This 74-nucleotide sequence from Ornithorhynchus anatinus belongs to the Rfam family "mir-1421 microRNA precursor family".
Rfam 15.1 lists 110 matches to the family in 14 species.
The base pairs follow the family's consensus structure, which was predicted with RNAalifold.

RNA sequence: CGGUGUUAGCAGGUUACAUGCGGUGCAGUAUGGUAGUGGAAAAUGCUGCAUCCCUUGUGACCUCCGUACAGAGU
Number, nucleotide and partner (000 for none) at each position: 001c000002g000003g000004u070005g069006u068007u000008a000009g065010c000011a063012g062013g061014u060015u059016a058017c057018a056019u000020g054021c000022g000023g051024u050025g049026c048027a047028g000029u000030a000031u000032g000033g000034u000035a000036g000037u000038g000039g000040a000041a000042a000043a000044u000045g000046c000047u027048g026049c025050a024051u023052c000053c000054c020055u000056u018057g017058u016059g015060a014061c013062c012063u011064c000065c009066g000067u000068a006069c005070a004071g000072a000073g000074u000